A member of the RNA family "Flavo-1 RNA" from Flavobacterium pygoscelis, 145 nucleotides long. The match comes from Rfam's covariance-model search (53 bits). It is annotated as a small RNA. The family's consensus secondary structure is taken from published work.

RNA sequence: UUUUAGCCUUGAUAGCAGUGGAAAGCCUUUACGAGGUGAUAACCAUUUUUUUCUAGUUGUAGUAGAGCGACCGCAGGAAGCUCCUACCGCAACAUAGAAAAAAGGUUUGAGCCCGAAAAGCUUGUAACGAAUAGCGAGAACAGCU
Numbered sequence: 001u002u003u004u005a006g007c008c009u010u011g012a013u014a015g016c017a018g019u020g021g022a023a024a025g026c027c028u029u030u031a032c033g034a035g036g037u038g039a040u041a042a043c044c045a046u047u048u049u050u051u052u053c054u055a056g057u058u059g060u061a062g063u064a065g066a067g068c069g070a071c072c073g074c075a076g077g078a079a080g081c082u083c084c085u086a087c088c089g090c091a092a093c094a095u096a097g098a099a100a101a102a103a104g105g106u107u108u109g110a111g112c113c114c115g116a117a118a119a120g121c122u123u124g125u126a127a128c129g130a131a132u133a134g135c136g137a138g139a140a141c142a143g144c145u
Stems, first nucleotide, its partner, number of pairs: 009137003013133002018128002023123004029118002032115002035113003